[Rfam]
The family of this 78-nucleotide RNA sequence from Vespula pensylvanica is "mir-278 microRNA precursor family".
Gene Ontology terms of the family: RISC complex and miRNA-mediated post-transcriptional gene silencing.
NCBI's taxonomy places the organism under Eukaryota, Bilateria, Protostomia, Aculeata, Vespula.

RNA sequence: GAUGCAUCCGGAUGACGUCUUCACCGGCCGUGAUCGUAAACGUUUUUUUGGUCGGUGGGACUUUCGUCCGUUUGCAAG
Numbered sequence: 001g002a003u004g005c006a007u008c009c010g011g012a013u014g015a016c017g018u019c020u021u022c023a024c025c026g027g028c029c030g031u032g033a034u035c036g037u038a039a040a041c042g043u044u045u046u047u048u049u050g051g052u053c054g055g056u057g058g059g060a061c062u063u064u065c066g067u068c069c070g071u072u073u074g075c076a077a078g
Stems, first nucleotide, its partner, number of pairs: 003076004009070007017061004022057002025054005